Shown here is a 178-nucleotide RNA from Sporotomaculum syntrophicum, a member of the family "Group II catalytic intron D1-D4-3".
The source organism's lineage runs through Bacteria, Bacillati, Eubacteriales, Desulfallaceae and Sporotomaculum.
The match comes from Rfam's covariance-model search (52 bits).
The pairing is the family consensus, mapped onto this sequence.
[Rfam]
RNA sequence: UCCAUCGCAAGGUGGGAUCUAAAGGAAGCCGGGGGCAAAUGCUUGACCCGCGAGAGUACACGAACUUAAUUUGAAGCGGUAUAUGCAGGAUUAACCGGCAGCAAAUAACCAAGUCCAAAGUCGCCAGGGAGUUCCGUGCGGUAAACUUGGGCGGGUGCAUGGGCGAAUCAUGGGAGGC
Numbered sequence: 001u002c003c004a005u006c007g008c009a010a011g012g013u014g015g016g017a018u019c020u021a022a023a024g025g026a027a028g029c030c031g032g033g034g035g036c037a038a039a040u041g042c043u044u045g046a047c048c049c050g051c052g053a054g055a056g057u058a059c060a061c062g063a064a065c066u067u068a069a070u071u072u073g074a075a076g077c078g079g080u081a082u083a084u085g086c087a088g089g090a091u092u093a094a095c096c097g098g099c100a101g102c103a104a105a106u107a108a109c110c111a112a113g114u115c116c117a118a119a120g121u122c123g124c125c126a127g128g129g130a131g132u133u134c135c136g137u138g139c140g141g142u143a144a145a146c147u148u149g150g151g152c153g154g155g156u157g158c159a160u161g162g163g164c165g166a167a168u169c170a171u172g173g174g175a176g177g178c
Stems, first nucleotide, its partner, number of pairs: 001016006028178003035171001040165006046156005065151005070145001076142002080138003085133001088116004097106001